Shown here is a 72-nucleotide RNA from Parnassius apollo, a member of the family "Mammalian CPEB3 ribozyme".
The base pairs follow the family's consensus structure, which is taken from published work.
Lineage of the source: Eukaryota > Panarthropoda > Mandibulata > Eumetabola > Parnassius.
Gene Ontology term of the family: RNA nuclease activity.
RNA sequence: ACUUUUAUAUUGGGGGUCAUUGUAGAAGCGUGCUCGUCGCGACCCCUCCAGCCUCAGGGCUGCAAUUCUACA
Numbered sequence: 001a002c003u004u005u006u007a008u009a010u011u012g013g014g015g016g017u018c019a020u021u022g023u024a025g026a027a028g029c030g031u032g033c034u035c036g037u038c039g040c041g042a043c044c045c046c047u048c049c050a051g052c053c054u055c056a057g058g059g060c061u062g063c064a065a066u067u068c069u070a071c072a
Stems, first nucleotide, its partner, number of pairs: 013046006021072007028040003049062005